The record is a 125-nucleotide RNA sequence from Callithrix jacchus, which matches "Small nucleolar RNA SNORA3/SNORA45 family" in Rfam. Rfam describes the family as follows. The members of this family belong to the H/ACA class of snoRNAs which are thought to guide the sites of modification of uridines to pseudouridines. This family includes mouse snoMBI-28 and human homologues ACA3 (SNORA3) and ACA3-2 (SNORA45). Both ACA3 and ACA3-2 share the same host gene. Rfam links the family to the GO terms RNA processing and nucleolus. The base pairs follow the family's consensus structure, which was predicted with RNAalifold. The organism belongs to Callithrix, within Eukaryota. Rfam classes the family as an H/ACA-box small nucleolar RNA.
RNA sequence: UCUGAGACUAGAGUCACAUCCUAACACAGCUCUUGUCCAGUGUGCUGAAGUCCUCAGAAUCUGCUGGUCUUGAUUCACUGAUGGGGGCAACCAGUGUCCCCAUUAGUGCCCAGUCAGAAACAUAC
Numbered sequence: 001u002c003u004g005a006g007a008c009u010a011g012a013g014u015c016a017c018a019u020c021c022u023a024a025c026a027c028a029g030c031u032c033u034u035g036u037c038c039a040g041u042g043u044g045c046u047g048a049a050g051u052c053c054u055c056a057g058a059a060u061c062u063g064c065u066g067g068u069c070u071u072g073a074u075u076c077a078c079u080g081a082u083g084g085g086g087g088c089a090a091c092c093a094g095u096g097u098c099c100c101c102a103u104u105a106g107u108g109c110c111c112a113g114u115c116a117g118a119a120a121c122a123u124a125c
Stems, first nucleotide, its partner, number of pairs: 002057005007051003012046002015044005024036003064117004069113002072110001076108006083101006